[Rfam]
RNA sequence: UUGCCCAUCAGGGUUGCGGACACCUGAUUUUAUUUAU
Numbered sequence: 001u002u003g004c005c006c007a008u009c010a011g012g013g014u015u016g017c018g019g020a021c022a023c024c025u026g027a028u029u030u031u032a033u034u035u036a037u
Base pairs, nucleotide, nucleotide: 003014004013005012006011017026018025019024
RNA: XIST RNA A repeat
Organism: Myotis davidii